The record is a 94-nucleotide RNA, which matches "Small nucleolar RNA Z256" in Rfam. Its family is annotated with RNA processing and nucleolus in the Gene Ontology. Rfam 15.1 lists 63 matches to the family in 9 species.
[Rfam]
RNA sequence: ACCUGCUGGUCAUGCUGACCACCGCCGCCCGAGCAUGGCUGACAGGGCUACCAAGGUACACCAUCAACAGCUGGGCCGAGAUGAAGGGACAGUU
Numbered sequence: 001a002c003c004u005g006c007u008g009g010u011c012a013u014g015c016u017g018a019c020c021a022c023c024g025c026c027g028c029c030c031g032a033g034c035a036u037g038g039c040u041g042a043c044a045g046g047g048c049u050a051c052c053a054a055g056g057u058a059c060a061c062c063a064u065c066a067a068c069a070g071c072u073g074g075g076c077c078g079a080g081a082u083g084a085a086g087g088g089a090c091a092g093u094u
Base pairs, nucleotide, nucleotide: 003092004091005090006088007087